[Rfam]
RNA sequence: CCUCCAUUCUUGGCAUGCUCGUGGUUUUUCGUACCCUUGUGUGUAUGUUCGGAGGAAUAAUAGAGCCAGUGCAAUGUCUUCGGUGCCAGCAUGUUCCCAUCGGCUGGUUCUAUCCUCUAUCACUGGAACAAGU
Numbered sequence: 001c002c003u004c005c006a007u008u009c010u011u012g013g014c015a016u017g018c019u020c021g022u023g024g025u026u027u028u029u030c031g032u033a034c035c036c037u038u039g040u041g042u043g044u045a046u047g048u049u050c051g052g053a054g055g056a057a058u059a060a061u062a063g064a065g066c067c068a069g070u071g072c073a074a075u076g077u078c079u080u081c082g083g084u085g086c087c088a089g090c091a092u093g094u095u096c097c098c099a100u101c102g103g104c105u106g107g108u109u110c111u112a113u114c115c116u117c118u119a120u121c122a123c124u125g126g127a128a129c130a131a132g133u
Base pairs, nucleotide, nucleotide: 001055002054003053004052005051014043015042016041017040018039021036023034067125068124069123070122071121086107087106088105089104090103
Shown here is a 133-nucleotide RNA from Labeo rohita, a member of the family "Small nucleolar RNA SNORA57". Gene Ontology terms of the family: RNA processing and nucleolus. Pairs were carried over by alignment from the consensus structure, which was predicted with PFOLD. U99 belongs to the H/ACA class of snoRNAs which are thought to guide the sites of modification of uridines to pseudouridines, the target for this family is unknown. The literature on the family includes a 2003 paper in Nucleic Acids Res by Vitali et al., "Identification of 13 novel human modification guide RNAs".